About this RNA:
Rfam assigns this 131-nucleotide RNA sequence from Marihabitans asiaticum to the family "FMN riboswitch aptamer (RFN element)".
RNA sequence: GAUCGUGCUCCGGGGUCGGUGCAAUUCCGAGCCGGCGGUGACAGUCCGCGACCCGCUCGCAGCCAGCGAGCGGUUGACGAGGUGGAACUCCUCGACCGACGGUGAGAGUCCGGAUGGGAGGCAGCACGAGC
Numbered sequence: 001g002a003u004c005g006u007g008c009u010c011c012g013g014g015g016u017c018g019g020u021g022c023a024a025u026u027c028c029g030a031g032c033c034g035g036c037g038g039u040g041a042c043a044g045u046c047c048g049c050g051a052c053c054c055g056c057u058c059g060c061a062g063c064c065a066g067c068g069a070g071c072g073g074u075u076g077a078c079g080a081g082g083u084g085g086a087a088c089u090c091c092u093c094g095a096c097c098g099a100c101g102g103u104g105a106g107a108g109u110c111c112g113g114a115u116g117g118g119a120g121g122c123a124g125c126a127c128g129a130g131c
Stems, first nucleotide, its partner, number of pairs: 003129007010120001017029003031109002033098002035049004044096002053073002078094005100112003
Source information
Pairs were carried over by alignment from the consensus structure, which is taken from published work. Rfam links the family to the GO term FMN binding. A search with the family's covariance model found it, with a score of 89 bits.